[Rfam]
RNA sequence: GGCCCCAGAUCCCGGCGGAUCCCUCGGGAUCCCGCGGGAUCCCGAGGGAUCCGCCGGGAUCUGGGGCC
Numbered sequence: 001g002g003c004c005c006c007a008g009a010u011c012c013c014g015g016c017g018g019a020u021c022c023c024u025c026g027g028g029a030u031c032c033c034g035c036g037g038g039a040u041c042c043c044g045a046g047g048g049a050u051c052c053g054c055c056g057g058g059a060u061c062u063g064g065g066g067c068c
Stems, first nucleotide, its partner, number of pairs: 001068009012058002014055015030039003
The record is a 68-nucleotide sequence from Vidua macroura, which matches "Epstein-Barr virus stable intronic sequence RNA 2" in Rfam. Taxonomically the source falls in Vidua (Eukaryota, Vertebrata, Sarcopterygii, Archelosauria).